The family of this 69-nucleotide RNA from Synechococcus sp. PCC 7335 is "Nitrogen stress-induced RNA 1". The base pairs follow the family's consensus structure. The family has 17 seed sequences and 962 matches in Rfam 15.1. The organism belongs to Synechococcus, within Bacteria. Rfam classes the family as a small RNA.
[Rfam]
RNA sequence: UGGUAGAUGCACCCAAUCGUUCCCUGAUUCUCUUGUGAAGCUUUCACCCAAGAAUUGGGGAAUUUUUUU
Numbered sequence: 001u002g003g004u005a006g007a008u009g010c011a012c013c014c015a016a017u018c019g020u021u022c023c024c025u026g027a028u029u030c031u032c033u034u035g036u037g038a039a040g041c042u043u044u045c046a047c048c049c050a051a052g053a054a055u056u057g058g059g060g061a062a063u064u065u066u067u068u069u
Stems, first nucleotide, its partner, number of pairs: 002013003021061011